[Rfam]
RNA sequence: GAAGCUCCCAACUCCCUCAAAGGUUUCCAGCAUCACAUAAUUGCUUCAAGUAAUGGGAAUGUUGGAAACCUUUUGUGGGGGUUUGAGAGCUU
Numbered sequence: 001g002a003a004g005c006u007c008c009c010a011a012c013u014c015c016c017u018c019a020a021a022g023g024u025u026u027c028c029a030g031c032a033u034c035a036c037a038u039a040a041u042u043g044c045u046u047c048a049a050g051u052a053a054u055g056g057g058a059a060u061g062u063u064g065g066a067a068a069c070c071u072u073u074u075g076u077g078g079g080g081g082u083u084u085g086a087g088a089g090c091u092u
Base pairs, nucleotide, nucleotide: 003091004090005089006088009085010084011083012081013080014079015078016077018075020072021071022070023069024068025067026066027065028064029063030062031061032060
Shown here is a 92-nucleotide RNA sequence from Populus trichocarpa, a member of the family "MIR477 microRNA precursor family".
The family has 3 seed sequences and 63 matches in Rfam 15.1.
The base pairs follow the family's consensus structure, which was predicted with WAR.
Rfam links the family to the GO terms RISC complex and miRNA-mediated post-transcriptional gene silencing.